[Rfam]
RNA sequence: CCCAUCGAGGGGCGCUGCAAGCCCGGCACGCCAGUGCAAGGGAACAGGCUCGAUGGAGGCAACACGCGAAACGGCGCCCGUUCAAU
Numbered sequence: 001c002c003c004a005u006c007g008a009g010g011g012g013c014g015c016u017g018c019a020a021g022c023c024c025g026g027c028a029c030g031c032c033a034g035u036g037c038a039a040g041g042g043a044a045c046a047g048g049c050u051c052g053a054u055g056g057a058g059g060c061a062a063c064a065c066g067c068g069a070a071a072c073g074g075c076g077c078c079c080g081u082u083c084a085a086u
Base pairs, nucleotide, nucleotide: 002056003055004054005053006052007051008050022042023041024040